The record is a 95-nucleotide sequence from Actinidia chinensis, which matches "MIR535 microRNA precursor family" in Rfam. The source organism's lineage runs through Eukaryota, Mesangiospermae, Ericales, Actinidiaceae and Actinidia chinensis. On this family, see Zeng et al., Nucleic Acids Res 2010: "Conservation and divergence of microRNAs and their functions in Euphorbiaceous plants".
RNA sequence: CAAAUUAUAUGACGACGAUAGGGAGCACGCUUGUACACAAUAAUGUUCGAUGCAUGAAUGCCGACUAGCGUGCUCUCUCUCGUUGUCAAGCAACA
Numbered sequence: 001c002a003a004a005u006u007a008u009a010u011g012a013c014g015a016c017g018a019u020a021g022g023g024a025g026c027a028c029g030c031u032u033g034u035a036c037a038c039a040a041u042a043a044u045g046u047u048c049g050a051u052g053c054a055u056g057a058a059u060g061c062c063g064a065c066u067a068g069c070g071u072g073c074u075c076u077c078u079c080u081c082g083u084u085g086u087c088a089a090g091c092a093a094c095a
Stems, first nucleotide, its partner, number of pairs: 010088005016082002020078002023075001025073007033065002